[Rfam]
RNA sequence: GUACGUCUUCAGGGCGGGGCGAAAUUCCCCACCGGCGGUAUGCCGCGCAAUGCGGCGAGCCCGCGAGCGCCCGUGGUCUUUCCGAUCACGGGGUCAGCAGAUCUGGUGCGAUGCCAGGGCCGACGGUCACAGUCCGGAUGAAAGAAGAUGUGC
Dot-bracket structure: ..((((((((......(((.......))).[[((((((....................[[))))..((............................))...(((((.......)))))]])).(((.....]]))).......))))))))..
Numbered sequence: 001g002u003a004c005g006u007c008u009u010c011a012g013g014g015c016g017g018g019g020c021g022a023a024a025u026u027c028c029c030c031a032c033c034g035g036c037g038g039u040a041u042g043c044c045g046c047g048c049a050a051u052g053c054g055g056c057g058a059g060c061c062c063g064c065g066a067g068c069g070c071c072c073g074u075g076g077u078c079u080u081u082c083c084g085a086u087c088a089c090g091g092g093g094u095c096a097g098c099a100g101a102u103c104u105g106g107u108g109c110g111a112u113g114c115c116a117g118g119g120c121c122g123a124c125g126g127u128c129a130c131a132g133u134c135c136g137g138a139u140g141a142a143a144g145a146a147g148a149u150g151u152g153c
Stems, first nucleotide, its partner, number of pairs: 003151008017029003031133002033122002035064004059120002067098002102118005124136003

Rfam assigns this 153-nucleotide RNA from Bordetella ansorpii to the family "FMN riboswitch aptamer (RFN element)". Rfam's curators write: The RFN element is a highly conserved domain that is found frequently in the 5'-untranslated regions of prokaryotic mRNAs that encode for flavin mononucleotide (FMN) biosynthesis and transport proteins. Rfam links the family to the GO term FMN binding. The base pairs follow the family's consensus structure, which is taken from published work. The organism belongs to Bordetella, within Bacteria.